[Rfam]
MIR2593 microRNA precursor family: a 104-nucleotide RNA sequence from Medicago truncatula. The organism belongs to Medicago, within Eukaryota. Rfam links the family to the GO terms RISC complex and miRNA-mediated post-transcriptional gene silencing. The base pairs follow the family's consensus structure, which was predicted with RNAalifold.
RNA sequence: AUAUAAGCAAAAUUUACUUUUUAGGUUCAUUCAUUUAAUGAUGUAUGUGGUCCACCACAUACAUCAUUAAAUGAAUGAACCUAAAAAGUAAAUUUUGCUUAUAU
Numbered sequence: 001a002u003a004u005a006a007g008c009a010a011a012a013u014u015u016a017c018u019u020u021u022u023a024g025g026u027u028c029a030u031u032c033a034u035u036u037a038a039u040g041a042u043g044u045a046u047g048u049g050g051u052c053c054a055c056c057a058c059a060u061a062c063a064u065c066a067u068u069a070a071a072u073g074a075a076u077g078a079a080c081c082u083a084a085a086a087a088g089u090a091a092a093u094u095u096u097g098c099u100u101a102u103a104u
Stems, first nucleotide, its partner, number of pairs: 002103011014091011026079018048057003